[Rfam]
RNA sequence: UCUGCAACAAUCCUGCACCUGGAGCACACACACAAUGUACUUGUUACAUAUUCUUGCUACGGGAAGGUCUGAGACAGACAGUUACCCUCUAGACGGGGGCUUGUGGAGACACAAGGCAAGGGGACCAGAAAUAUGUUGACGAAAAGUAAAGCCCAGGAUUGCUUUAAGCAUAGGUGUCACUUGGAGUCAAUUGAAAACUCUUGCCGUCAGCAAUUUGAGUAUAAUCUGCGGGCUGGAGACAAUUGUCACCAGAACUCAAUUCAGACUAAUCUGUUGCAGA
Numbered sequence: 001u002c003u004g005c006a007a008c009a010a011u012c013c014u015g016c017a018c019c020u021g022g023a024g025c026a027c028a029c030a031c032a033c034a035a036u037g038u039a040c041u042u043g044u045u046a047c048a049u050a051u052u053c054u055u056g057c058u059a060c061g062g063g064a065a066g067g068u069c070u071g072a073g074a075c076a077g078a079c080a081g082u083u084a085c086c087c088u089c090u091a092g093a094c095g096g097g098g099g100c101u102u103g104u105g106g107a108g109a110c111a112c113a114a115g116g117c118a119a120g121g122g123g124a125c126c127a128g129a130a131a132u133a134u135g136u137u138g139a140c141g142a143a144a145a146g147u148a149a150a151g152c153c154c155a156g157g158a159u160u161g162c163u164u165u166a167a168g169c170a171u172a173g174g175u176g177u178c179a180c181u182u183g184g185a186g187u188c189a190a191u192u193g194a195a196a197a198c199u200c201u202u203g204c205c206g207u208c209a210g211c212a213a214u215u216u217g218a219g220u221a222u223a224a225u226c227u228g229c230g231g232g233c234u235g236g237a238g239a240c241a242a243u244u245g246u247c248a249c250c251a252g253a254a255c256u257c258a259a260u261u262c263a264g265a266c267u268a269a270u271c272u273g274u275u276g277c278a279g280a
Base pairs, nucleotide, nucleotide: 001280002279003278004277007274008273009272012232013231014230015229016228017227021060023058024057025056035049036048037047038046039045069264070263071262072261073260077208078207079206085099086098087097088096089095100115101114102113103112104111105110116204117203118202119201120200121199122198137189138188139187233252234251235250236249238247239246
RNA: Nuclear RNase P
Organism: Psylliodes chrysocephalus